RNA sequence: UAUUCCCACAAGGGGAGCCGAUAUGGCUGAGAGUGAACGACUGAGUUCUGACCCUAUGAACCUGUUAGAUAAUGCUAGCGCAGGGACUGUGGUUUGAUGGAAUG
Numbered sequence: 001u002a003u004u005c006c007c008a009c010a011a012g013g014g015g016a017g018c019c020g021a022u023a024u025g026g027c028u029g030a031g032a033g034u035g036a037a038c039g040a041c042u043g044a045g046u047u048c049u050g051a052c053c054c055u056a057u058g059a060a061c062c063u064g065u066u067a068g069a070u071a072a073u074g075c076u077a078g079c080g081c082a083g084g085g086a087c088u089g090u091g092g093u094u095u096g097a098u099g100g101a102a103u104g
Stems, first nucleotide, its partner, number of pairs: 006092005011055004016049001017027004035048004061084004065078004
TPP riboswitch aptamer (THI element): a 104-nucleotide RNA sequence from Heyndrickxia shackletonii.